The family of this 137-nucleotide sequence from Paenibacillus athensensis is "c-di-AMP riboswitch aptamer (ydaO/yuaA leader)". It scores 97 bits against the family's covariance model.
RNA sequence: UUGAAUAAAAAGCCGAAUUUCUUUACGAAAACGGGGGAACCAUGAAAUUGGGGUGAAUUUUGCAGCCGGGCUGCAAAUAGGGUGAUCCACGCAUCCGAAUCCGUCAGCUAACCUCGUAGGCUUUGCGUCAGGAACCA
Number, nucleotide and partner (000 for none) at each position: 001u000002u000003g000004a000005a000006u000007a000008a000009a000010a000011a122012g121013c120014c119015g000016a000017a000018u030019u029020u028021c000022u000023u000024u000025a000026c000027g000028a020029a019030a018031a117032c116033g115034g114035g113036g112037g000038a000039a000040c000041c050042a049043u000044g000045a000046a000047a000048u000049u042050g041051g102052g101053g100054u000055g000056a000057a000058u000059u077060u076061u075062g074063c000064a000065g000066c000067c000068g000069g000070g000071c000072u000073g000074c062075a061076a060077a059078u000079a000080g096081g095082g094083u093084g000085a000086u000087c000088c000089a000090c000091g000092c000093a083094u082095c081096c080097g000098a000099a000100u053101c052102c051103g000104u000105c000106a000107g000108c000109u000110a000111a000112c036113c035114u034115c033116g032117u031118a000119g014120g013121c012122u011123u000124u000125g000126c000127g000128u000129c000130a000131g000132g000133a000134a000135c000136c000137a000

Rfam links the family to the GO terms cyclic-di-AMP binding and regulation of gene expression.
The pairing is the family consensus, mapped onto this sequence.